[Rfam]
RNA: NoRC associated RNA, pRNA
RNA sequence: CAAUGUUGGUGGUGUUGGGGGCUCUUCUCCAUCAUAUGCGGGAGCUGCGAUGUGCACUGUGGGUCCCUCCCCCUCCUCCCUGUAC
Numbered sequence: 001c002a003a004u005g006u007u008g009g010u011g012g013u014g015u016u017g018g019g020g021g022c023u024c025u026u027c028u029c030c031a032u033c034a035u036a037u038g039c040g041g042g043a044g045c046u047g048c049g050a051u052g053u054g055c056a057c058u059g060u061g062g063g064u065c066c067c068u069c070c071c072c073c074u075c076c077u078c079c080c081u082g083u084a085c
Base pairs, nucleotide, nucleotide: 004082008078009077011076012075018073019072020071021070027063028062029061030059031058033054034053035052036051037050